This 35-nucleotide sequence from Pedobacter ginsengisoli belongs to the Rfam family "DUF805b RNA". The source organism's lineage runs through Bacteria, Bacteroidota, Sphingobacteriales, Sphingobacteriaceae and Pedobacter. Pairs were carried over by alignment from the consensus structure, which is taken from published work. A search with the family's covariance model found it, with a score of 37 bits.
[Rfam]
RNA sequence: UAGGCGUAUCCUGAAAAGCCUUUAAAGAGUAAGGA
Numbered sequence: 001u002a003g004g005c006g007u008a009u010c011c012u013g014a015a016a017a018g019c020c021u022u023u024a025a026a027g028a029g030u031a032a033g034g035a
Stems, first nucleotide, its partner, number of pairs: 002021004010034003